The record is a 59-nucleotide RNA sequence, which matches "RAGATH-30 RNA" in Rfam.
RNA sequence: GUAAAAAUAAGAAAUUAUCGAAUAGACUCGUUCAAACGAGAGCUGCUGUGUGGCAGCAA
Numbered sequence: 001g002u003a004a005a006a007a008u009a010a011g012a013a014a015u016u017a018u019c020g021a022a023u024a025g026a027c028u029c030g031u032u033c034a035a036a037c038g039a040g041a042g043c044u045g046c047u048g049u050g051u052g053g054c055a056g057c058a059a
Stems, first nucleotide, its partner, number of pairs: 027040005042057006
Rfam's curators put it in the seed alignment.